Rfam assigns this 292-nucleotide sequence from Citrobacter sp. JGM124 to the family "Soft rot Enterobacteriaceae Rev 39 5'UTR". Its family is annotated with cellular response to starvation in the Gene Ontology. For this family Rfam cites "Discovery and profiling of small RNAs responsive to stress conditions in the plant pathogen Pectobacterium atrosepticum" (Kwenda et al., BMC Genomics, 2016). Rfam's curators write: From bacteria cultured under starvation conditions. The family's RNA type in Rfam is cis-regulatory element.
Nucleotides: 292
Base pairs, nucleotide, nucleotide: 005028006027007026008025009024010023011022012021032066033065034064036062039058044053045052080250081249082248084246088243089242092239093238094237095236097231098230100229101228102227105113106112117135118134119133120132122131123130124129138155140153141152142151143150159185164181165180167178168177190225191224192223193222194221195220196219197218198217199216200215201214203212204211205210251279252278253277254276259270260269261268
Number, partner (000 for none) and nucleotide at each position: 001000u002000u003000g004000u005028g006027u007026u008025a009024u010023u011022a012021u013000c014000c015000a016000a017000u018000u019000c020000u021012g022011u023010g024009a025008u026007a027006a028005c029000u030000c031000u032066g033065u034064a035000g036062g037000c038000a039058u040000u041000a042000c043000u044053u045052c046000g047000a048000g049000c050000a051000a052045g053044a054000u055000g056000a057000u058039a059000g060000a061000a062036c063000g064034u065033a066032c067000a068000g069000a070000a071000u072000a073000u074000g075000a076000c077000a078000g079000c080250c081249c082248u083000u084246c085000u086000a087000c088243g089242a090000g091000u092239g093238a094237u095236u096000a097231g098230c099000c100229u101228a102227g103000u104000c105113g106112u107000g108000a109000u110000u111000a112106g113105c114000a115000u116000u117135g118134u119133g120132g121000u122131g123130a124129u125000u126000a127000u128000u129124a130123u131122c132120c133119c134118a135117c136000c137000g138155u139000g140153c141152g142151g143150g144000g145000c146000u147000g148000c149000a150143c151142u152141u153140g154000g155138a156000g157000a158000a159185a160000g161000a162000a163000a164181g165180g166000c167178u168177u169000a170000a171000a172000a173000a174000u175000c176000a177168a178167g179000c180165c181164u182000u183000a184000a185159u186000c187000g188000a189000a190225a191224a192223g193222a194221a195220a196219c197218c198217c199216c200215c201214g202000c203212a204211c205210c206000g207000a208000a209000a210205g211204g212203u213000c214201c215200g216199g217198g218197g219196g220195u221194u222193u223192u224191u225190u226000a227102u228101u229100g230098g231097c232000a233000a234000a235000g236095a237094a238093u239092u240000u241000a242089u243088u244000a245000u246084g247000a248082g249081g250080g251279c252278a253277g254276a255000u256000u257000c258000u259270a260269u261268g262000u263000g264000g265000c266000a267000g268261c269260a270259u271000a272000a273000a274000a275000u276254u277253c278252u279251g280000u281000u282000u283000c284000u285000c286000g287000u288000g289000u290000a291000u292000u